[Rfam]
RNA: MIR7502 microRNA precursor family
RNA sequence: UAUUAAAAAUUUCAUCCAUUUUUACUGUUAAAAAAUGACAUGGCUAACAAAAUCACUAGACAGUUACACGUUGCACGCCAUGUGUACCUCAUGCUGACAUACAAGACCAGUUUUUAGUAGUAGAAAAGGAUGAAAAUUUUAACA
Dot-bracket structure: ..((((((.(((((((..((((((((.((((((..............................................................................)))))).))))))))..))))))).))))))..